[Rfam]
Shown here is a 98-nucleotide sequence from Arthrobacter sp. ISL-48, a member of the family "Glycine riboswitch aptamer". Taxonomically the source falls in Arthrobacter (Bacteria, Bacillati, Actinomycetota, Actinomycetes). A search with the family's covariance model found it, with a score of 66 bits.
RNA sequence: UGAUCUGCGGCGGGAGAGUCCUGCCGGUACGUUCAGCAGGCGCCGUAGGAGCAAAUCCUCCCCAGGAAUCUCUCAGGCCCACGUACCGCCGCGGCAAG
Numbered sequence: 001u002g003a004u005c006u007g008c009g010g011c012g013g014g015a016g017a018g019u020c021c022u023g024c025c026g027g028u029a030c031g032u033u034c035a036g037c038a039g040g041c042g043c044c045g046u047a048g049g050a051g052c053a054a055a056u057c058c059u060c061c062c063c064a065g066g067a068a069u070c071u072c073u074c075a076g077g078c079c080c081a082c083g084u085a086c087c088g089c090c091g092c093g094g095c096a097a098g
Base pairs, nucleotide, nucleotide: 006093007092008091009090010089011088012087013086020040021039022038023037042078043077044076045074049072050071051070056064